Description
The family of this 316-nucleotide RNA from Juglans regia is "Plant signal recognition particle RNA". Rfam classes the family as a non-coding RNA gene. Rfam 15.1 lists 4,988 matches to the family in 266 species.
[Rfam]
RNA sequence: GCCGGGCUUAGCAACGCAAGCCUGUUACCCAUGUGGGGGCUUUAAAGUGAUCGGACGCUGGCAUAUGCCAUCCGGGACGGGUUACACCGAUGGCUUAUUACUGGCCCGCCCACUCCAAGUCAAGAGAUUGAGGCAUGUGAUCUGGGCGAAGGCCCUCGGGUCACGUGUGAUUCCUAGAGGUUGGGGGCAAAGCGUUCAGGCUGGUUUCACAGAGCAGCGACAACCCCCCGCUCCUGACGGUGGAGGGAUAACGGGACAGUGCCUCUGUGAUCCAAUAAAGACCCGGUGGAUUUGACCUGGCUGGACCAUCACUUUU
Numbered sequence: 001g002c003c004g005g006g007c008u009u010a011g012c013a014a015c016g017c018a019a020g021c022c023u024g025u026u027a028c029c030c031a032u033g034u035g036g037g038g039g040c041u042u043u044a045a046a047g048u049g050a051u052c053g054g055a056c057g058c059u060g061g062c063a064u065a066u067g068c069c070a071u072c073c074g075g076g077a078c079g080g081g082u083u084a085c086a087c088c089g090a091u092g093g094c095u096u097a098u099u100a101c102u103g104g105c106c107c108g109c110c111c112a113c114u115c116c117a118a119g120u121c122a123a124g125a126g127a128u129u130g131a132g133g134c135a136u137g138u139g140a141u142c143u144g145g146g147c148g149a150a151g152g153c154c155c156u157c158g159g160g161u162c163a164c165g166u167g168u169g170a171u172u173c174c175u176a177g178a179g180g181u182u183g184g185g186g187g188c189a190a191a192g193c194g195u196u197c198a199g200g201c202u203g204g205u206u207u208c209a210c211a212g213a214g215c216a217g218c219g220a221c222a223a224c225c226c227c228c229c230g231c232u233c234c235u236g237a238c239g240g241u242g243g244a245g246g247g248a249u250a251a252c253g254g255g256a257c258a259g260u261g262c263c264u265c266u267g268u269g270a271u272c273c274a275a276u277a278a279a280g281a282c283c284c285g286g287u288g289g290a291u292u293u294g295a296c297c298u299g300g301c302u303g304g305a306c307c308a309u310c311a312c313u314u315u316u
Base pairs, nucleotide, nucleotide: 001040002039003038004023005022006021007020008019009018028037029036030035044315045314046313047312048311049310050309051308053306056303057302058300059299060298062294063293065291066290068289069288070287072286073285074284075283076282078280079273080272081271082270083269084268085267086266089265092263093262095261101259102258103257105255106254107253108252110247111246113245114244115243116242117241119238120237121236122235124233125232126231130173131172132171133168134167135166136165137164138163139162140161141160142159143158144157145154146153147152174179183227184226185225186224193219194218195217201212202211203210
NCBI's taxonomy places the organism under Eukaryota, Streptophytina, Tracheophyta, Gunneridae, Juglans.